Rfam assigns this 133-nucleotide RNA sequence from Bacillus sp. FJAT-27986 to the family "Ribosomal protein L20 leader". Rfam classes the family as a cis-regulatory leader. The source organism's lineage runs through Bacteria, Bacillati, Caryophanales, Bacillaceae and Bacillus. It scores 68 bits against the family's covariance model.
RNA sequence: AUUAUAAAGCAGAAGCACCCGCUUCUCACCUGUAUAACACUCUUCAGAGAGUAGUUAACUGGUUCAAUUGAUAUAAUCAGACGGUAUGUCUUUUUAUGGGCGGGUGUGCAUGCACCGGCCUUUUUUAUAUGUU
Numbered sequence: 001a002u003u004a005u006a007a008a009g010c011a012g013a014a015g016c017a018c019c020c021g022c023u024u025c026u027c028a029c030c031u032g033u034a035u036a037a038c039a040c041u042c043u044u045c046a047g048a049g050a051g052u053a054g055u056u057a058a059c060u061g062g063u064u065c066a067a068u069u070g071a072u073a074u075a076a077u078c079a080g081a082c083g084g085u086a087u088g089u090c091u092u093u094u095u096a097u098g099g100g101c102g103g104g105u106g107u108g109c110a111u112g113c114a115c116c117g118g119c120c121u122u123u124u125u126u127a128u129a130u131g132u133u
Stems, first nucleotide, its partner, number of pairs: 011026006028063003036056003039052005099120003103116005